[Rfam]
RNA sequence: GGUCAUGAGUGCCAGCGCCAAGCCCCGGCUCGCUGGCCGGCAACCCUCCAGUUGCGGUGGGGUGCUCCGGGUGAUGACCCGGCUCUCGAAAGACGAGAGCAAGCGCGACUA
Numbered sequence: 001g002g003u004c005a006u007g008a009g010u011g012c013c014a015g016c017g018c019c020a021a022g023c024c025c026c027g028g029c030u031c032g033c034u035g036g037c038c039g040g041c042a043a044c045c046c047u048c049c050a051g052u053u054g055c056g057g058u059g060g061g062g063u064g065c066u067c068c069g070g071g072u073g074a075u076g077a078c079c080c081g082g083c084u085c086u087c088g089a090a091a092g093a094c095g096a097g098a099g100c101a102a103g104c105g106c107g108a109c110u111a
Base pairs, nucleotide, nucleotide: 001079002078003077004076009038011037012036013035014034015033016032021030022029039066040065041064044062045061046060048057049056082100083099084098085097086096087095088094
A member of the RNA family "SAM (S-adenosyl methionine) riboswitch aptamer" from Nocardia transvalensis, 111 nucleotides long.
From the family's description: SAM-IV is a mRNA element that regulates gene expression via direct sensing of S-adenosylmethionine (SAM or AdoMet). SAM-IV riboswitches share conserved nucleotide positions with the previously described SAM-I riboswitches sequence analysis and molecular recognition experiments suggest that SAM-I and SAM-IV riboswitches share similar ligand binding sites, but have different scaffolds.
The family's consensus secondary structure is taken from published work.
Gene Ontology terms of the family: S-adenosylmethionine metabolic process and regulation of gene expression.
A reference for the family is Weinberg et al. (2008), "The aptamer core of SAM-IV riboswitches mimics the ligand-binding site of SAM-I riboswitches", RNA.